[Rfam]
RNA: Mammalian CPEB3 ribozyme
RNA sequence: AACUGUCAUAAUGGCCAUAGCAGGAGCAUUCAUGUUGUGUCCCCUGUCAGAUGCCAACAAAUCUGCUAAAUUCUACU
Dot-bracket structure: ............[[.[..((.(((((((.......)))].]].....(((((........))))).....)))).))